[Rfam]
RNA sequence: UGGCAGCUGCCAGGAGAGAGCCGAGCCCCGAGCCGGCCGCCGAAGGCGCAGGGGCUGCGGCAUCGAUCACCGCCCCGAACGCUCAGGCAAAAGGACUGGCAAGCACCU
Numbered sequence: 001u002g003g004c005a006g007c008u009g010c011c012a013g014g015a016g017a018g019a020g021c022c023g024a025g026c027c028c029c030g031a032g033c034c035g036g037c038c039g040c041c042g043a044a045g046g047c048g049c050a051g052g053g054g055c056u057g058c059g060g061c062a063u064c065g066a067u068c069a070c071c072g073c074c075c076c077g078a079a080c081g082c083u084c085a086g087g088c089a090a091a092a093g094g095a096c097u098g099g100c101a102a103g104c105a106c107c108u
Stems, first nucleotide, its partner, number of pairs: 008101006020037004039088003042084002046082003052076002
RNA: Glycine riboswitch aptamer
Organism: Sphaerotilus hippei